Background
Shown here is a 105-nucleotide RNA from Mikania micrantha, a member of the family "MIR394 microRNA precursor family". For this family Rfam cites "Computational identification of plant microRNAs and their targets, including a stress-induced miRNA" (Jones-Rhoades and Bartel, Mol Cell, 2004). Pairs were carried over by alignment from the consensus structure, which was predicted with WAR. Taxonomically the source falls in Mikania (Eukaryota, Streptophytina, Mesangiospermae, Asteroideae).
[Rfam]
RNA sequence: CAUACAGAGCCAGUUUGGCAUUCUGUCCACCUCCGUAUGUACGUAUUGACGGCGGUUAAGAUUGUUGGUAGGGAGGUGGCCAGCCUGCUAAACUAGCUCUGUAAG
Numbered sequence: 001c002a003u004a005c006a007g008a009g010c011c012a013g014u015u016u017g018g019c020a021u022u023c024u025g026u027c028c029a030c031c032u033c034c035g036u037a038u039g040u041a042c043g044u045a046u047u048g049a050c051g052g053c054g055g056u057u058a059a060g061a062u063u064g065u066u067g068g069u070a071g072g073g074a075g076g077u078g079g080c081c082a083g084c085c086u087g088c089u090a091a092a093c094u095a096g097c098u099c100u101g102u103a104a105g
Stems, first nucleotide, its partner, number of pairs: 015091006024082002027079008
Dot-bracket structure: ..............((((((...((.((((((((.....................................)))))))).))...))))))..............